[Rfam]
RNA sequence: GCUGGGUGAUUGUCGACCACCUGUAGCCCGAGACGUUAAAGGGUGCAAAUCUGCGGUGUGGUGUGCGGGUUGGAAUCCUGCAUGCAGGAAUGGGGUGUUGAUCUGGGUGUCCGACUGAGGCGACUCUCACCACGGACGUCACCACGGAGGUGGAGGCGCCCGGGGCGAUAAUGAGGCCCGCACCGGCGUAGGCUGGCAACAGAGCACGCAAAAGGGCCCGGGGCUGCCAGCAGUGGGAUAGCACUCGUGAGCUUCAGCCUGCUUGUAGCCUUCCCAAUACCAUCGCGCUUUCUUUUUU
Numbered sequence: 001g002c003u004g005g006g007u008g009a010u011u012g013u014c015g016a017c018c019a020c021c022u023g024u025a026g027c028c029c030g031a032g033a034c035g036u037u038a039a040a041g042g043g044u045g046c047a048a049a050u051c052u053g054c055g056g057u058g059u060g061g062u063g064u065g066c067g068g069g070u071u072g073g074a075a076u077c078c079u080g081c082a083u084g085c086a087g088g089a090a091u092g093g094g095g096u097g098u099u100g101a102u103c104u105g106g107g108u109g110u111c112c113g114a115c116u117g118a119g120g121c122g123a124c125u126c127u128c129a130c131c132a133c134g135g136a137c138g139u140c141a142c143c144a145c146g147g148a149g150g151u152g153g154a155g156g157c158g159c160c161c162g163g164g165g166c167g168a169u170a171a172u173g174a175g176g177c178c179c180g181c182a183c184c185g186g187c188g189u190a191g192g193c194u195g196g197c198a199a200c201a202g203a204g205c206a207c208g209c210a211a212a213a214g215g216g217c218c219c220g221g222g223g224c225u226g227c228c229a230g231c232a233g234u235g236g237g238a239u240a241g242c243a244c245u246c247g248u249g250a251g252c253u254u255c256a257g258c259c260u261g262c263u264u265g266u267a268g269c270c271u272u273c274c275c276a277a278u279a280c281c282a283u284c285g286c287g288c289u290u291u292c293u294u295u296u297u298u
Stems, first nucleotide, its partner, number of pairs: 001046002004022005010016002027043003048296002053291001055289002058286006067275003072270002078268005084262005092255005098249001103247001105246006111237002115233003119228004124223004128167001130165002133162003137158004142153004168172001175218005186209003193202003